c-di-GMP-I-GGC riboswitch aptamer: a 76-nucleotide RNA sequence from Solirubrobacter pauli. The source organism's lineage runs through Bacteria, Bacillati, Solirubrobacterales, Solirubrobacteraceae and Solirubrobacter. The match comes from Rfam's covariance-model search (64 bits).
RNA sequence: UGCGAAAGGGCAAACCCGUCGUGAGGCGGGGACGCAAAGCCACGGGACUCCCCGCGAGUCAGCCGAGCUGCCGAAC
Numbered sequence: 001u002g003c004g005a006a007a008g009g010g011c012a013a014a015c016c017c018g019u020c021g022u023g024a025g026g027c028g029g030g031g032a033c034g035c036a037a038a039g040c041c042a043c044g045g046g047a048c049u050c051c052c053c054g055c056g057a058g059u060c061a062g063c064c065g066a067g068c069u070g071c072c073g074a075a076c
Stems, first nucleotide, its partner, number of pairs: 010035002015030006033062001038069003043065003046060003